[Rfam]
RNA sequence: UUACUCUGGUCUCUCUUCAAAUGUCGAAUAAAUCUUUCGCCUUUUACUAAAGAUUUCCGUGGAGAGGGACACUCUAAUGAGUCUAAAAUAAAUUUUUGUCUUGUCCAACCCCGCUAAUCCGGGGUU
Numbered sequence: 001u002u003a004c005u006c007u008g009g010u011c012u013c014u015c016u017u018c019a020a021a022u023g024u025c026g027a028a029u030a031a032a033u034c035u036u037u038c039g040c041c042u043u044u045u046a047c048u049a050a051a052g053a054u055u056u057c058c059g060u061g062g063a064g065a066g067g068g069a070c071a072c073u074c075u076a077a078u079g080a081g082u083c084u085a086a087a088a089u090a091a092a093u094u095u096u097u098g099u100c101u102u103g104u105c106c107a108a109c110c111c112c113g114c115u116a117a118u119c120c121g122g123g124g125u126u
Stems, first nucleotide, its partner, number of pairs: 003082004009070011030056008108125006
A member of the RNA family "U5 spliceosomal RNA" from Aedes aegypti, 126 nucleotides long. U5 RNA is a component of both types of known spliceosome. The precise function of this molecule is unknown, though it is known that the 5' loop is required for splice site selection and p220 binding, and that both the 3' stem-loop and the Sm site are important for Sm protein binding and cap methylation. The family's RNA type in Rfam is spliceosomal small nuclear RNA. The base pairs follow the family's consensus structure, which is taken from published work. On this family, see Zwieb, Nucleic Acids Res 1997: "The uRNA database".